[Rfam]
RNA sequence: GGAUCCGACCCGGGGAGCCCGUGGAUGACGGGCUGAGAGGCUGACCAGGAACCGCCAGCGACCCGUAGCACCCGAUCGCGGUCAUGCGCGCGUGGGGAGGGGAUUGCGAUCACUA
Numbered sequence: 001g002g003a004u005c006c007g008a009c010c011c012g013g014g015g016a017g018c019c020c021g022u023g024g025a026u027g028a029c030g031g032g033c034u035g036a037g038a039g040g041c042u043g044a045c046c047a048g049g050a051a052c053c054g055c056c057a058g059c060g061a062c063c064c065g066u067a068g069c070a071c072c073c074g075a076u077c078g079c080g081g082u083c084a085u086g087c088g089c090g091c092g093u094g095g096g097g098a099g100g101g102g103a104u105u106g107c108g109a110u111c112a113c114u115a
Stems, first nucleotide, its partner, number of pairs: 009100002011065004017033005040059004071096004077090004
RNA: TPP riboswitch aptamer (THI element)
Organism: Pseudofrankia inefficax